[Rfam]
RNA sequence: UGAGAUGUGAGGAGAAAGCUUCUCUAAAAGUGGAAACUAGGAAACACUUUUUAGGAAGCUAAAAAA
Numbered sequence: 001u002g003a004g005a006u007g008u009g010a011g012g013a014g015a016a017a018g019c020u021u022c023u024c025u026a027a028a029a030g031u032g033g034a035a036a037c038u039a040g041g042a043a044a045c046a047c048u049u050u051u052u053a054g055g056a057a058g059c060u061a062a063a064a065a066a
Stems, first nucleotide, its partner, number of pairs: 017060006027051003030047003